[Rfam]
RNA sequence: GUUAGCGGAUUAAAAAGAUGCCUUAGUCCGCGUCGUUCAGAAAAUGAACGACUAAAAAAUCGGGUGAAUUGCGGGAAAAUCCUUAGAGACUUACAAGCUACAACGUGUCCGGAAACGGUGAACGUGAAUGCUAUAAAAAUUGUGAGUAUUGGACAAUCUGCAGCCAAGCGUCAUAGGGCAUAGAUUAUGGCGAAGGUUCAACGACUAGAGGUUGAGUCCCAACAAUAAAACCUCAUAAGCGCCCGGCCCCUAACAGAUCAUGCUGAGGGUGAUGAUAUAGUCUAGUCCGUUUUGCAAAAGCAG
Numbered sequence: 001g002u003u004a005g006c007g008g009a010u011u012a013a014a015a016a017g018a019u020g021c022c023u024u025a026g027u028c029c030g031c032g033u034c035g036u037u038c039a040g041a042a043a044a045u046g047a048a049c050g051a052c053u054a055a056a057a058a059a060u061c062g063g064g065u066g067a068a069u070u071g072c073g074g075g076a077a078a079a080u081c082c083u084u085a086g087a088g089a090c091u092u093a094c095a096a097g098c099u100a101c102a103a104c105g106u107g108u109c110c111g112g113a114a115a116c117g118g119u120g121a122a123c124g125u126g127a128a129u130g131c132u133a134u135a136a137a138a139a140u141u142g143u144g145a146g147u148a149u150u151g152g153a154c155a156a157u158c159u160g161c162a163g164c165c166a167a168g169c170g171u172c173a174u175a176g177g178g179c180a181u182a183g184a185u186u187a188u189g190g191c192g193a194a195g196g197u198u199c200a201a202c203g204a205c206u207a208g209a210g211g212u213u214g215a216g217u218c219c220c221a222a223c224a225a226u227a228a229a230a231c232c233u234c235a236u237a238a239g240c241g242c243c244c245g246g247c248c249c250c251u252a253a254c255a256g257a258u259c260a261u262g263c264u265g266a267g268g269g270u271g272a273u274g275a276u277a278u279a280g281u282c283u284a285g286u287c288c289g290u291u292u293u294g295c296a297a298a299a300g301c302a303g
Stems, first nucleotide, its partner, number of pairs: 005031009037044001060246004065241002070162006080153003163197002201283001203282005248269004253264001256261001289301005